RNase MRP: a 234-nucleotide sequence from Soboliphyme baturini.
Pairs were carried over by alignment from the consensus structure, which is taken from published work.
A reference for the family is Li et al. (2002), "Phylogenetic analysis of the structure of RNase MRP RNA in yeasts", RNA.
By type it is a ribozyme.
Gene Ontology terms of the family: rRNA processing, ribonuclease MRP activity and ribonuclease MRP complex.

RNA sequence: GCAUAGACGCAUGUGUAACUUUCGGAAUAACAUAACGAGCUCACGGUAGCUUUGUACUUCCGGAGAAAGUCCCUGGACAUCAGCUUGAGAGAAGCGGUACUUAACGUAUUUCGUUUCGACUGCGUCUUACAACAAAAGGGCACGAUGCCUUCAUGGCUACCCGUAAGAUAGUCGGACGGAUUGUCGAAGCAAAGGAACGUUACUCGGAUAGCACAGGGCUUAUGUGCGGCUAUG
Numbered sequence: 001g002c003a004u005a006g007a008c009g010c011a012u013g014u015g016u017a018a019c020u021u022u023c024g025g026a027a028u029a030a031c032a033u034a035a036c037g038a039g040c041u042c043a044c045g046g047u048a049g050c051u052u053u054g055u056a057c058u059u060c061c062g063g064a065g066a067a068a069g070u071c072c073c074u075g076g077a078c079a080u081c082a083g084c085u086u087g088a089g090a091g092a093a094g095c096g097g098u099a100c101u102u103a104a105c106g107u108a109u110u111u112c113g114u115u116u117c118g119a120c121u122g123c124g125u126c127u128u129a130c131a132a133c134a135a136a137a138g139g140g141c142a143c144g145a146u147g148c149c150u151u152c153a154u155g156g157c158u159a160c161c162c163g164u165a166a167g168a169u170a171g172u173c174g175g176a177c178g179g180a181u182u183g184u185c186g187a188a189g190c191a192a193a194g195g196a197a198c199g200u201u202a203c204u205c206g207g208a209u210a211g212c213a214c215a216g217g218g219c220u221u222a223u224g225u226g227c228g229g230c231u232a233u234g
Stems, first nucleotide, its partner, number of pairs: 002234005008228004015203005022063006037052005067221003071218004083095004098108003110180003116175006125168004137164001139162002147157003